[Rfam]
RNA: pan motif
Organism: Brevibacillus fulvus
RNA sequence: GAGGCCAAAUCCAUCCGGAAUGGCACUCGAUACCCGACUUGUUUUUUUUCUUUCAUUCUUUUAAAAAAAUCUGCUCAGAGCCCGUGGGACCGAGACAGAAGG
Numbered sequence: 001g002a003g004g005c006c007a008a009a010u011c012c013a014u015c016c017g018g019a020a021u022g023g024c025a026c027u028c029g030a031u032a033c034c035c036g037a038c039u040u041g042u043u044u045u046u047u048u049u050c051u052u053u054c055a056u057u058c059u060u061u062u063a064a065a066a067a068a069a070u071c072u073g074c075u076c077a078g079a080g081c082c083c084g085u086g087g088g089a090c091c092g093a094g095a096c097a098g099a100a101g102g
Stems, first nucleotide, its partner, number of pairs: 001028003004024004010019002071098003074094003078090001081088002